[Rfam]
RNA: Exoribonuclease-resistant RNA (xrRNA) plant-infecting virus (class 3)
Nucleotides: 052
Stems, first nucleotide, its partner, number of pairs: 008035002011033001012030002018050005
Number, partner (000 for none) and nucleotide at each position: 001000u002000a003000g004000u005000a006000a007000g008035c009034c010000a011033a012030g013029c014000a015000u016000a017000c018050a019049u020048c021047a022046g023000u024000u025000g026000c027000a028000a029013g030012c031000g032000u033011u034009g035008g036000a037000a038000u039000a040000c041000u042000u043000a044000g045000c046022c047021u048020g049019a050018u051000u052000a